[Rfam]
RNA sequence: ACAGUACAAACUGAGCAGGCGAUAGACCUUAUAAUUAAGGGUUUGUGGGGCCGGGCCAUGAAACGUGUGGCAACAGAUUGCAUUUAAAUACGCAUCUGUGGGACAGUA
Numbered sequence: 001a002c003a004g005u006a007c008a009a010a011c012u013g014a015g016c017a018g019g020c021g022a023u024a025g026a027c028c029u030u031a032u033a034a035u036u037a038a039g040g041g042u043u044u045g046u047g048g049g050g051c052c053g054g055g056c057c058a059u060g061a062a063a064c065g066u067g068u069g070g071c072a073a074c075a076g077a078u079u080g081c082a083u084u085u086a087a088a089u090a091c092g093c094a095u096c097u098g099u100g101g102g103a104c105a106g107u108a
Base pairs, nucleotide, nucleotide: 010107011106012105013104016102018052019051020050022046023045024044025043026042027041028040029039030038055071056070057069058068059067073099074098075097076096077095078094
This 108-nucleotide RNA from Anaerocolumna jejuensis belongs to the Rfam family "NiCo (Nickel/Cobalt) riboswitch aptamer".
Gene Ontology terms of the family: cobalt ion binding and metal ion homeostasis.
The match comes from Rfam's covariance-model search (74 bits).
On this family, see Furukawa et al., Mol Cell 2015: "Bacterial riboswitches cooperatively bind Ni(2+) or Co(2+) ions and control expression of heavy metal transporters".